[Rfam]
A member of the RNA family "mir-3492 microRNA precursor family" from Trichobilharzia regenti, 78 nucleotides long. Gene Ontology terms of the family: RISC complex and miRNA-mediated post-transcriptional gene silencing. The source organism's lineage runs through Eukaryota, Metazoa, Strigeidida, Schistosomatoidea and Trichobilharzia.
RNA sequence: AACCUUCUGUAUCCGUACGGAGAUUUCGUCAGCGACCAACCCGUUGGAGCUGACGCAACUCCCUAAAUAAGUGAAGUG
Numbered sequence: 001a002a003c004c005u006u007c008u009g010u011a012u013c014c015g016u017a018c019g020g021a022g023a024u025u026u027c028g029u030c031a032g033c034g035a036c037c038a039a040c041c042c043g044u045u046g047g048a049g050c051u052g053a054c055g056c057a058a059c060u061c062c063c064u065a066a067a068u069a070a071g072u073g074a075a076g077u078g
Stems, first nucleotide, its partner, number of pairs: 002077002005074002008071001010069003019062004024058002027055004
Dot-bracket structure: .((.((.(.(((......((((.((.((((.....................)))).))))))....))).).)).)).